Shown here is a 105-nucleotide RNA from Frateuria terrea, a member of the family "t44 RNA". By type it is a small RNA.
RNA sequence: GCCAAGCCCAACCAACGCCACACACGCAUCGGCACCGUCUUCGGGGUGCCGCGGCCCGCCUUCCGGCGGCUGCGGUCGAAGCCGGGGAUGCGUGGAGGUCCCAAC
Numbered sequence: 001g002c003c004a005a006g007c008c009c010a011a012c013c014a015a016c017g018c019c020a021c022a023c024a025c026g027c028a029u030c031g032g033c034a035c036c037g038u039c040u041u042c043g044g045g046g047u048g049c050c051g052c053g054g055c056c057c058g059c060c061u062u063c064c065g066g067c068g069g070c071u072g073c074g075g076u077c078g079a080a081g082c083c084g085g086g087g088a089u090g091c092g093u094g095g096a097g098g099u100c101c102c103a104a105c
Base pairs, nucleotide, nucleotide: 023094024093025092026091027090028089029088030087035085036084037083039081040080041079042078043077048076049075050074051073052072053071054070055069056068